A member of the RNA family "c-di-AMP riboswitch aptamer (ydaO/yuaA leader)" from Candidatus Protofrankia datiscae, 166 nucleotides long. Pairs were carried over by alignment from the consensus structure. The organism belongs to Protofrankia, within Bacteria.

[Rfam]
RNA sequence: CCCGAGCUACCGCGGAGCCACAAGGACAGGAUCGGGGGAACCACCAUCCGGACGUCCUCUCACGGAGUCCUUGGGGUAAAGCCGGCAGCGUCCCUCGGCGCCGCCGGCCGGGCUUGAUUCCCGCCCGCACCCGACAGCUCACCUCGUAGGCGACGGGAAGGACCGA
Numbered sequence: 001c002c003c004g005a006g007c008u009a010c011c012g013c014g015g016a017g018c019c020a021c022a023a024g025g026a027c028a029g030g031a032u033c034g035g036g037g038g039a040a041c042c043a044c045c046a047u048c049c050g051g052a053c054g055u056c057c058u059c060u061c062a063c064g065g066a067g068u069c070c071u072u073g074g075g076g077u078a079a080a081g082c083c084g085g086c087a088g089c090g091u092c093c094c095u096c097g098g099c100g101c102c103g104c105c106g107g108c109c110g111g112g113c114u115u116g117a118u119u120c121c122c123g124c125c126c127g128c129a130c131c132c133g134a135c136a137g138c139u140c141a142c143c144u145c146g147u148a149g150g151c152g153a154c155g156g157g158a159a160g161g162a163c164c165g166a
Stems, first nucleotide, its partner, number of pairs: 001150002007030002033146005042073002074132003082107004110126004